[Rfam]
RNA sequence: UGCAGGUAUGCGUGGGAACUACUUAGGUCGCUCGUAAGAGUGGCAGCCCCAAGCGGGUGGGAUCCUAAGUCCCGGGACCUGCAAUCAG
Numbered sequence: 001u002g003c004a005g006g007u008a009u010g011c012g013u014g015g016g017a018a019c020u021a022c023u024u025a026g027g028u029c030g031c032u033c034g035u036a037a038g039a040g041u042g043g044c045a046g047c048c049c050c051a052a053g054c055g056g057g058u059g060g061g062a063u064c065c066u067a068a069g070u071c072c073c074g075g076g077a078c079c080u081g082c083a084a085u086c087a088g
Stems, first nucleotide, its partner, number of pairs: 001083007011075001013074004021070006027044007047057003